This 74-nucleotide RNA sequence from Notothenia coriiceps belongs to the Rfam family "mir-17 microRNA precursor family".
The base pairs follow the family's consensus structure, which was predicted with RNAalifold.
Lineage of the source: Eukaryota > Bilateria > Osteoglossocephalai > Ctenosquamata > Notothenia.
It scores 52 bits against the family's covariance model.
From the family's description: This family represents the microRNA (miRNA) precursor mir-17, family, which includes mir-20, mir-91, and mir-103. miRNAs are transcribed as ~70nt precursors (modelled here) and subsequently processed by the Dicer enzyme to give a ~22nt product. In this case the mature sequence comes from the 3' arm of the precursor. The extents of the hairpin precursors are not generally known and are estimated based on hairpin prediction.
Rfam links the family to the GO terms RISC complex and miRNA-mediated post-transcriptional gene silencing.
A reference for the family is Liu et al. (2025), "Structural Features Within Precursor microRNA-20a Regulate Dicer-TRBP Processing", J Mol Biol.
RNA sequence: UGGGUGUCAAAAGUGCUGUUUGUGCAGGUAGCAGUCAUCCACCUACUGCAAAACCAGCACUUCAGGCACACGGU
Dot-bracket structure: ..(..(.(..((((((((.((.(((.(((((...........)))))))).)).))))))))...)).).....
Numbered sequence: 001u002g003g004g005u006g007u008c009a010a011a012a013g014u015g016c017u018g019u020u021u022g023u024g025c026a027g028g029u030a031g032c033a034g035u036c037a038u039c040c041a042c043c044u045a046c047u048g049c050a051a052a053a054c055c056a057g058c059a060c061u062u063c064a065g066g067c068a069c070a071c072g073g074u
Stems, first nucleotide, its partner, number of pairs: 003069001006067001008066001011062008020053002023050003027047005